Rfam assigns this 77-nucleotide RNA sequence from Homo sapiens to the family "mir-642 microRNA precursor family". The literature on the family includes a 2009 paper in Comput Biol Chem by Baev et al., "Computational identification of novel microRNA homologs in the chimpanzee genome". Its family is annotated with miRNA-mediated post-transcriptional gene silencing and RISC complex in the Gene Ontology.
RNA sequence: GAGUUGGGAGGUUCCCUCUCCAAAUGUGUCUUGAUCCCCCACCCCAAGACACAUUUGGAGAGGGACCCUCCCAACUC
Numbered sequence: 001g002a003g004u005u006g007g008g009a010g011g012u013u014c015c016c017u018c019u020c021c022a023a024a025u026g027u028g029u030c031u032u033g034a035u036c037c038c039c040c041a042c043c044c045c046a047a048g049a050c051a052c053a054u055u056u057g058g059a060g061a062g063g064g065a066c067c068c069u070c071c072c073a074a075c076u077c
Stems, first nucleotide, its partner, number of pairs: 001077011013065021